[Rfam]
Nucleotides: 108
Base pairs, nucleotide, nucleotide: 014078015077016076017075024072025071026070027069028068029066030065031064034043035042046063047062049060050059087108088107089106090105091104092103093102094101095100
Number, partner (000 for none) and nucleotide at each position: 001000g002000c003000g004000a005000u006000g007000a008000g009000c010000u011000g012000a013000a014078u015077u016076g017075c018000a019000u020000a021000a022000g023000a024072c025071g026070a027069g028068a029066a030065a031064c032000a033000u034043u035042c036000c037000u038000u039000c040000u041000a042035g043034g044000a045000g046063c047062a048000c049060a050059c051000a052000a053000u054000g055000u056000g057000g058000a059050g060049u061000g062047u063046g064031g065030u066029u067000u068028u069027u070026u071025c072024g073000c074000c075017g076016c077015a078014a079000u080000a081000c082000g083000c084000a085000a086000a087108g088107a089106c090105g091104c092103c093102u094101g095100a096000u097000c098000u099000u100095u101094c102093a103092g104091g105090c106089g107088u108087c
This 108-nucleotide RNA from Neobacillus rhizophilus belongs to the Rfam family "BsrF". For this family Rfam cites "Novel small RNA-encoding genes in the intergenic regions of Bacillus subtilis" (Saito et al., Gene, 2008).